[Rfam]
RNA sequence: CUCUUAUCAAGAGAGGUGGAGGGACUGGCCCUAUGAAGCCCGGCAACCAUCAAACAUUAAAUUGUUUGAACAGGUGCCAAUUCCUGCGAAGCUUAAAAAGCUUUGGCAGAUGAGAG
Numbered sequence: 001c002u003c004u005u006a007u008c009a010a011g012a013g014a015g016g017u018g019g020a021g022g023g024a025c026u027g028g029c030c031c032u033a034u035g036a037a038g039c040c041c042g043g044c045a046a047c048c049a050u051c052a053a054a055c056a057u058u059a060a061a062u063u064g065u066u067u068g069a070a071c072a073g074g075u076g077c078c079a080a081u082u083c084c085u086g087c088g089a090a091g092c093u094u095a096a097a098a099a100g101c102u103u104u105g106g107c108a109g110a111u112g113a114g115a116g
Stems, first nucleotide, its partner, number of pairs: 001116008013041001015040003021031003025086001027084002042078004047074002050069006082108001087105006
The record is a 116-nucleotide sequence from Salirhabdus euzebyi, which matches "SAM riboswitch aptamer (S box leader)" in Rfam. Rfam's curators write: The SAM riboswitch is found upstream of a number of genes which code for proteins involved in methionine or cysteine biosynthesis in Gram-positive bacteria. The SAM riboswitch acts at the level of transcription termination control. A search with the family's covariance model found it, with a score of 92 bits.